[Rfam]
RNA: 7SK RNA
Organism: Chinchilla lanigera
RNA sequence: GGAUGUGAGGGCGAUCUGGCUGUGACAUCUGUCACCCCAUUGAUCGCCAGGGUUGAUUCGGCUGAUCUGGCUGGCUAGGCGGGUGUCCCCUUCCUCCCUCAACGCUCCAUGUGCAUCCCUCCCGAAGCUGCGUGCUCGGUCUAAGAGGACAACCACCCCCGAUAGAGGAGGACCGUUCCUCGGUCAAGGGUAUACGAGUAGCUGCACUCCCCUGCUAGAAUCUCCAAACAAGCUCUCUAAAUUUGGAUAAAUUCAAGCCUGUGGGAAAGUUCUAGAAGAGUAAUACAAUAAAGAUUAUUGAUAACUU
Number, nucleotide and partner (000 for none) at each position: 001g108002g107003a106004u000005g000006u101007g100008a099009g098010g097011g096012c000013g093014a092015u000016c000017u000018g090019g089020c000021u000022g000023u000024g087025a086026c085027a084028u083029c082030u081031g080032u079033c078034a000035c074036c073037c070038c069039a068040u000041u000042g067043a066044u065045c064046g062047c061048c060049a000050g000051g000052g000053u000054u000055g000056a000057u000058u000059c000060g048061g047062c046063u000064g045065a044066u043067c042068u039069g038070g037071c000072u000073g036074g035075c000076u000077a000078g033079g032080c031081g030082g029083g028084u027085g026086u025087c024088c000089c019090c018091u000092u014093c013094c000095u000096c011097c010098c009099u008100c007101a006102a000103c000104g000105c000106u003107c002108c001109a000110u000111g000112u000113g000114c000115a000116u171117c170118c168119c167120u166121c165122c139123c138124g137125a136126a000127g135128c134129u000130g000131c000132g000133u000134g128135c127136u125137c124138g123139g122140u162141c161142u000143a000144a000145g000146a000147g158148g157149a000150c000151a000152a000153c000154c000155a000156c000157c148158c147159c000160c000161g141162a140163u000164a000165g121166a120167g119168g118169a000170g117171g116172a000173c000174c000175g000176u000177u000178c000179c000180u000181c000182g000183g000184u000185c000186a000187a000188g000189g000190g000191u000192a000193u000194a000195c000196g000197a000198g000199u000200a000201g270202c000203u000204g000205c000206a000207c269208u268209c000210c000211c265212c264213u263214g262215c261216u000217a000218g000219a000220a000221u000222c257223u256224c000225c000226a000227a000228a000229c000230a000231a000232g000233c000234u000235c000236u000237c000238u000239a000240a000241a000242u000243u000244u000245g000246g000247a000248u000249a000250a000251a000252u000253u000254c000255a000256a223257g222258c000259c000260u000261g215262u214263g213264g212265g211266a000267a000268a208269g207270u201271u000272c000273u000274a000275g000276a000277a000278g000279a000280g000281u000282a000283a000284u000285a000286c000287a000288a000289u000290a000291a000292a000293g000294a000295u000296u000297a000298u000299u000300g000301a000302u000303a000304a000305c000306u000307u000